[Rfam]
DUF805b RNA: a 33-nucleotide sequence. Pairs were carried over by alignment from the consensus structure, which is taken from published work.

RNA sequence: GGAGCGUAUGCCGAAAAGCUUAUAGAGUAGGCG
Numbered sequence: 001g002g003a004g005c006g007u008a009u010g011c012c013g014a015a016a017a018g019c020u021u022a023u024a025g026a027g028u029a030g031g032c033g
Stems, first nucleotide, its partner, number of pairs: 002021004010032003
Dot-bracket structure: .((((....[[[.....))))........]]].

By type it is a cis-regulatory element. The family is grouped with related families in Rfam's "DUF805 clan". Rfam's curators put it in the seed alignment.